[Rfam]
Record summary
This 173-nucleotide RNA sequence from Clostridium beijerinckii belongs to the Rfam family "M-box riboswitch aptamer (ykoK leader)". M-box riboswitch, also know as ykoK leader is described as a metaloregulatory RNA that sense divalent metals and function as a genetic control element of genes related to divalent metal transport in bacteria. It was first reported upstream of the B.subtilis ykoK gene and genes with related functions in other bacteria. The sequence is in the family's curated seed alignment. NCBI's taxonomy places the organism under Bacteria, Bacillati, Bacillota, Clostridia, Clostridium beijerinckii. The literature on the family includes a 2004 paper in Proc Natl Acad Sci U S A by Barrick et al., "New RNA motifs suggest an expanded scope for riboswitches in bacterial genetic control".
RNA sequence: UAAAAACUUUGUUAGGUGAGGCUCCUAUAUAGAUACAUGCUGCUGCCCGGAAACGUCGAGAGACGCCAAUGGGUCAACAGGUAUUGCCGGAUUAAGGUUCUACUUAAUGUAGCCGAAAACCAUAUGGUUUUCUAUGCUCUAUAGUGCUAAAACUCAACGAGUGAAGGUUAAUA
Numbered sequence: 001u002a003a004a005a006a007c008u009u010u011g012u013u014a015g016g017u018g019a020g021g022c023u024c025c026u027a028u029a030u031a032g033a034u035a036c037a038u039g040c041u042g043c044u045g046c047c048c049g050g051a052a053a054c055g056u057c058g059a060g061a062g063a064c065g066c067c068a069a070u071g072g073g074u075c076a077a078c079a080g081g082u083a084u085u086g087c088c089g090g091a092u093u094a095a096g097g098u099u100c101u102a103c104u105u106a107a108u109g110u111a112g113c114c115g116a117a118a119a120c121c122a123u124a125u126g127g128u129u130u131u132c133u134a135u136g137c138u139c140u141a142u143a144g145u146g147c148u149a150a151a152a153c154u155c156a157a158c159g160a161g162u163g164a165a166g167g168u169u170a171a172u173a
Base pairs, nucleotide, nucleotide: 005169006168007167008166009165010164011158012157013095015154016153017152020148021147022146025144026143027142028141029140031138032137039113040112041111042110043109045074046073047072048071049070054065055064056063057062080104081103082102083101086098087097088096115132116131117130118129119128